[Rfam]
RNA sequence: GAAGCGUUUACCCCGCACCGGGAUGACUCCCGGGUCAGACGGGGACUUUCGCCUAGUAAUAGGUGAAUCA
Number, nucleotide and partner (000 for none) at each position: 001g000002a000003a000004g000005c000006g000007u000008u000009u000010a000011c044012c043013c042014c041015g040016c000017a000018c033019c032020g031021g030022g029023a000024u000025g000026a000027c000028u000029c022030c021031c020032g019033g018034g000035u000036c000037a000038g000039a000040c015041g014042g013043g012044g011045a000046c000047u000048u067049u066050c065051g064052c063053c062054u061055a060056g000057u000058a000059a000060u055061a054062g053063g052064u051065g050066a049067a048068u000069c000070a000
RNA: Transposase-2 RNA
Organism: Nocardiopsis sp. JB363